[Rfam]
RNA: mir-8799 microRNA precursor family
RNA sequence: GGGGAGGCCGGAUCUGGGGACGGUGUUCCGGCGCCUGUGCUCCGGGGCCUGCGCUGUUGGGAUUCGCGCUCCCGCCCCGCAAGCCCCC
Numbered sequence: 001g002g003g004g005a006g007g008c009c010g011g012a013u014c015u016g017g018g019g020a021c022g023g024u025g026u027u028c029c030g031g032c033g034c035c036u037g038u039g040c041u042c043c044g045g046g047g048c049c050u051g052c053g054c055u056g057u058u059g060g061g062a063u064u065c066g067c068g069c070u071c072c073c074g075c076c077c078c079g080c081a082a083g084c085c086c087c088c
Base pairs, nucleotide, nucleotide: 001087002086003085004084007080008079010076011075014074018072019071020070023067024066025065026062027061028060029056030055031054032053033052034051037049039048040047041046